[Rfam]
RNA sequence: CCCCGAUAAAGGCAAACCCUCCGUGAGGAGGCGACGCAAAGCCACGGAACUUGUCAGGCAUCACAAGACAAGUCAGCCGGGCCACCGAA
Numbered sequence: 001c002c003c004c005g006a007u008a009a010a011g012g013c014a015a016a017c018c019c020u021c022c023g024u025g026a027g028g029a030g031g032c033g034a035c036g037c038a039a040a041g042c043c044a045c046g047g048a049a050c051u052u053g054u055c056a057g058g059c060a061u062c063a064c065a066a067g068a069c070a071a072g073u074c075a076g077c078c079g080g081g082c083c084a085c086c087g088a089a
Stems, first nucleotide, its partner, number of pairs: 012037002018031005041082003045079003049073006
About this RNA: This 89-nucleotide sequence from Deinococcus ruber belongs to the Rfam family "c-di-GMP-I riboswitch aptamer". The base pairs follow the family's consensus structure, which is taken from published work. Taxonomically the source falls in Deinococcus (Bacteria, Deinococci, Deinococcales, Deinococcaceae).